[Rfam]
The family of this 91-nucleotide RNA from Durio zibethinus is "Small nucleolar RNA snoR27".

RNA sequence: AUUGGAUCCAUGAUGCUACGUAACAAACUGUGUUAUCUAUCUGAACUUCCUUUCGAAGGGAUCGAAGAUAUUUUCCAUGCUGAGAUCCAGU
Numbered sequence: 001a002u003u004g005g006a007u008c009c010a011u012g013a014u015g016c017u018a019c020g021u022a023a024c025a026a027a028c029u030g031u032g033u034u035a036u037c038u039a040u041c042u043g044a045a046c047u048u049c050c051u052u053u054c055g056a057a058g059g060g061a062u063c064g065a066a067g068a069u070a071u072u073u074u075c076c077a078u079g080c081u082g083a084g085a086u087c088c089a090g091u
Base pairs, nucleotide, nucleotide: 001091002090003089004088005087006086007085
It scores 68 bits against the family's covariance model.
Pairs were carried over by alignment from the consensus structure, which was predicted with WAR.